The record is a 42-nucleotide sequence from Bacillus licheniformis, which matches "Ribosomal protein L19 leader" in Rfam.

RNA sequence: ACGAUGUUCCGCUGUGCCGGUUAACUCGCGCAAGAGCAUCUG
Numbered sequence: 001a002c003g004a005u006g007u008u009c010c011g012c013u014g015u016g017c018c019g020g021u022u023a024a025c026u027c028g029c030g031c032a033a034g035a036g037c038a039u040c041u042g
Stems, first nucleotide, its partner, number of pairs: 003040007013032005

Pairs were carried over by alignment from the consensus structure, which was predicted with CMfinder. About the family: This family is a putative r-protein leader autoregulatory structure found in B. subtilis and other low-GC Gram-positive bacteria. It is located in the 5' untranslated regions of mRNAs encoding ribosomal protein L19 (rplS). NCBI's taxonomy places the organism under Bacteria, Bacillati, Bacilli, Bacillus, Bacillus licheniformis. For this family Rfam cites "Diverse mechanisms for regulating ribosomal protein synthesis in Escherichia coli" (Zengel and Lindahl, Prog Nucleic Acid Res Mol Biol, 1994).